[Rfam]
RNA sequence: CUCUGAAAAAGGCAAACCCGUCGAAAGGCGGGGACGCAAAAUCACCGGUCUACAGGGGUCGCCCCAUGACAGCGGGAUUGCCAGG
Numbered sequence: 001c002u003c004u005g006a007a008a009a010a011g012g013c014a015a016a017c018c019c020g021u022c023g024a025a026a027g028g029c030g031g032g033g034a035c036g037c038a039a040a041a042u043c044a045c046c047g048g049u050c051u052a053c054a055g056g057g058g059u060c061g062c063c064c065c066a067u068g069a070c071a072g073c074g075g076g077a078u079u080g081c082c083a084g085g
Stems, first nucleotide, its partner, number of pairs: 012037002017032006040079004045075003048070003055064003
RNA: c-di-GMP-I riboswitch aptamer
Organism: Aromatoleum aromaticum